This 81-nucleotide sequence from Salipaludibacillus keqinensis belongs to the Rfam family "ZMP/ZTP riboswitch aptamer (pfl RNA motif)". A search with the family's covariance model found it, with a score of 60 bits. The family's consensus secondary structure is taken from published work.
RNA sequence: AAGGCUAUGUGUAACUGGCGAACACGGAUGACCGUGAGGGAGCACAUAGUUAUCGUAUAGCCGUUCGCCUGGGCAAAGGUA
Numbered sequence: 001a002a003g004g005c006u007a008u009g010u011g012u013a014a015c016u017g018g019c020g021a022a023c024a025c026g027g028a029u030g031a032c033c034g035u036g037a038g039g040g041a042g043c044a045c046a047u048a049g050u051u052a053u054c055g056u057a058u059a060g061c062c063g064u065u066c067g068c069c070u071g072g073g074c075a076a077a078g079g080u081a
Stems, first nucleotide, its partner, number of pairs: 003051010015039002017069005024035004058076001060074003